The family of this 110-nucleotide sequence from Halomonas sp. PA5 is "Glycine riboswitch aptamer". Rfam links the family to the GO term glycine biosynthetic process.
RNA sequence: ACCAUUCCGAAGAGUUGCCGGCGUCAGCGUCCGUCGGCACACCGAAGGAGCAAGCGGCCGCCUCCAAGGCAGCACGUGAAUCUCUCAGGUUCCAUGACGGAAGGGGUGCU
Number, nucleotide and partner (000 for none) at each position: 001a000002c105003c104004a000005u102006u101007c100008c099009g098010a000011a000012g000013a000014g000015u000016u039017g038018c037019c036020g035021g034022c033023g032024u000025c000026a000027g000028c000029g000030u000031c000032c023033g022034u021035c020036g019037g018038c017039a016040c000041a090042c089043c088044g086045a085046a000047g000048g084049a083050g082051c000052a000053a000054g077055c076056g000057g000058c000059c000060g000061c000062c000063u000064c000065c000066a000067a000068g000069g000070c000071a000072g000073c000074a000075c000076g055077u054078g000079a000080a000081u000082c050083u049084c048085u045086c044087a000088g043089g042090u041091u000092c000093c000094a000095u000096g000097a000098c009099g008100g007101a006102a005103g000104g003105g002106g000107u000108g000109c000110u000

The organism belongs to Halomonas, within Bacteria.